[Rfam]
Shown here is a 72-nucleotide sequence from Oceanobacillus profundus, a member of the family "Bacillaceae-1 RNA".
RNA sequence: AAUAGAAGACCUUCGACUAAAAACUGACAUGUCCUGUGUCGAACGUCGAAGUCACCACUUCCAGGCUGUGGA
Numbered sequence: 001a002a003u004a005g006a007a008g009a010c011c012u013u014c015g016a017c018u019a020a021a022a023a024c025u026g027a028c029a030u031g032u033c034c035u036g037u038g039u040c041g042a043a044c045g046u047c048g049a050a051g052u053c054a055c056c057a058c059u060u061c062c063a064g065g066c067u068g069u070g071g072a
Base pairs, nucleotide, nucleotide: 011051012050013049014048015047016046017045026040027039028038029037030036055071056070057069058068

It scores 48 bits against the family's covariance model.